RNA: Baculoviridae Nucleocapsid Assembly essential Element
RNA sequence: CAUUUUGAGCGACGUAUAUUGACCAAUAUACUACAAUCGGACGUUUGUGCCGAUCUAUAUACUACGAUGUACCAAAAAUAUACUACACUUGCACGAAAAUAUACUACAACUCCGUUUCAAUAUACUUACACUUUCGUAAAACCGCCUCCAAAUAUCGUUGUAUAUGCUAAAAAUAUACAAUUAAAAAACGCUACGAUUUC
Numbered sequence: 001c002a003u004u005u006u007g008a009g010c011g012a013c014g015u016a017u018a019u020u021g022a023c024c025a026a027u028a029u030a031c032u033a034c035a036a037u038c039g040g041a042c043g044u045u046u047g048u049g050c051c052g053a054u055c056u057a058u059a060u061a062c063u064a065c066g067a068u069g070u071a072c073c074a075a076a077a078a079u080a081u082a083c084u085a086c087a088c089u090u091g092c093a094c095g096a097a098a099a100u101a102u103a104c105u106a107c108a109a110c111u112c113c114g115u116u117u118c119a120a121u122a123u124a125c126u127u128a129c130a131c132u133u134u135c136g137u138a139a140a141a142c143c144g145c146c147u148c149c150a151a152a153u154a155u156c157g158u159u160g161u162a163u164a165u166g167c168u169a170a171a172a173a174u175a176u177a178c179a180a181u182u183a184a185a186a187a188a189c190g191c192u193a194c195g196a197u198u199u200c
Stems, first nucleotide, its partner, number of pairs: 008192004014031007036054005041048002136178002152163004